[Rfam]
RNA sequence: GGUCAUGAGCGCCAGCGCGUAGCCCCGGCUCGCUGGCCGACAACCCUCCGAUCCGCGGUGGGGUGUCCCGGGUGACGACCUGGCCGGCCGCAUGUGCGGCGGGCAAGCGCGGACU
Numbered sequence: 001g002g003u004c005a006u007g008a009g010c011g012c013c014a015g016c017g018c019g020u021a022g023c024c025c026c027g028g029c030u031c032g033c034u035g036g037c038c039g040a041c042a043a044c045c046c047u048c049c050g051a052u053c054c055g056c057g058g059u060g061g062g063g064u065g066u067c068c069c070g071g072g073u074g075a076c077g078a079c080c081u082g083g084c085c086g087g088c089c090g091c092a093u094g095u096g097c098g099g100c101g102g103g104c105a106a107g108c109g110c111g112g113a114c115u
Stems, first nucleotide, its partner, number of pairs: 001080004009038001011037006021030002039067003044063003048058002083104003087100005